[Rfam]
RNA sequence: GUUGCAGAGCCAAUUUGGCAUUCUGUCCACCUCCAUGAAUGCUUCAUGCAUGAUACCCCAGUUCAAAGUCAUAGAUCUUGGAGGCGGCCAGUAUGUCAAACAGGCUCUGUAAA
Numbered sequence: 001g002u003u004g005c006a007g008a009g010c011c012a013a014u015u016u017g018g019c020a021u022u023c024u025g026u027c028c029a030c031c032u033c034c035a036u037g038a039a040u041g042c043u044u045c046a047u048g049c050a051u052g053a054u055a056c057c058c059c060a061g062u063u064c065a066a067a068g069u070c071a072u073a074g075a076u077c078u079u080g081g082a083g084g085c086g087g088c089c090a091g092u093a094u095g096u097c098a099a100a101c102a103g104g105c106u107c108u109g110u111a112a113a
Stems, first nucleotide, its partner, number of pairs: 011103001015099006024090002027087002030084005